A member of the RNA family "FMN riboswitch aptamer (RFN element)" from Pelolinea submarina, 136 nucleotides long. The family's consensus secondary structure is taken from published work.

[Rfam]
RNA sequence: GAUUUCCUUCGGGGCAGGGUGCGGGAACUUGGUUCCCAAUUCCCGAUCGGUGGUGAUAACCCACAAGCGCUGAGAUGCGCAGAUCCGGUGCAAUUCCGGGGUCGACGGUAUAGUCCGGACAUUAAAGAAGGUUAUA
Dot-bracket structure: ..(..(((((......(((......................))).[[((((((.....[[))))..(((........)))...(((((.......)))))]])).(((....]]))).........)))))..)..
Record summary:
The organism belongs to Pelolinea, within Bacteria.